[Rfam]
RNA sequence: AAAUAUCACUAGGGGUGCAUUCGUGCUGAGAGGAGUAAUCCGACCCUUUGAACCUGUUUGGUUUAUACCAGCGUAGGGAAGUGCUUAAUGCCUAUA
Numbered sequence: 001a002a003a004u005a006u007c008a009c010u011a012g013g014g015g016u017g018c019a020u021u022c023g024u025g026c027u028g029a030g031a032g033g034a035g036u037a038a039u040c041c042g043a044c045c046c047u048u049u050g051a052a053c054c055u056g057u058u059u060g061g062u063u064u065a066u067a068c069c070a071g072c073g074u075a076g077g078g079a080a081g082u083g084c085u086u087a088a089u090g091c092c093u094a095u096a
Stems, first nucleotide, its partner, number of pairs: 007083004011047004017026003033040002053077004058071004
RNA: TPP riboswitch aptamer (THI element)